[Rfam]
RNA sequence: CGGUCGGGAGAGCUGCAUGAGCGGUUCACUGGACAGAGGGCCACUCGGCUG
Numbered sequence: 001c002g003g004u005c006g007g008g009a010g011a012g013c014u015g016c017a018u019g020a021g022c023g024g025u026u027c028a029c030u031g032g033a034c035a036g037a038g039g040g041c042c043a044c045u046c047g048g049c050u051g
Stems, first nucleotide, its partner, number of pairs: 001051008010027007030043003034039001
This 51-nucleotide RNA belongs to the Rfam family "DUF3800-VI RNA".